[Rfam]
RNA sequence: CGACAUGAACGACGUGAAGAUCCGCAUGGUCCUCACCGACACCCGCCGGGUGCACGGAGAGAUCCGGUCGCCUGACCGUGCGGGGAGCGAGUGGCGAGACCGCCGUACCAACG
Numbered sequence: 001c002g003a004c005a006u007g008a009a010c011g012a013c014g015u016g017a018a019g020a021u022c023c024g025c026a027u028g029g030u031c032c033u034c035a036c037c038g039a040c041a042c043c044c045g046c047c048g049g050g051u052g053c054a055c056g057g058a059g060a061g062a063u064c065c066g067g068u069c070g071c072c073u074g075a076c077c078g079u080g081c082g083g084g085g086a087g088c089g090a091g092u093g094g095c096g097a098g099a100c101c102g103c104c105g106u107a108c109c110a111a112c113g
Stems, first nucleotide, its partner, number of pairs: 001113002007108001009106003013089003022083008066101002068097005

Record summary: The family of this 113-nucleotide RNA sequence is "c-di-GMP-II-GAG riboswitch aptamer". The literature on the family includes a 2017 paper in Proc Natl Acad Sci U S A by Weinberg et al., "Bioinformatic analysis of riboswitch structures uncovers variant classes with altered ligand specificity". The sequence is in the family's curated seed alignment. Rfam links the family to the GO terms regulation of gene expression and cyclic-di-GMP binding.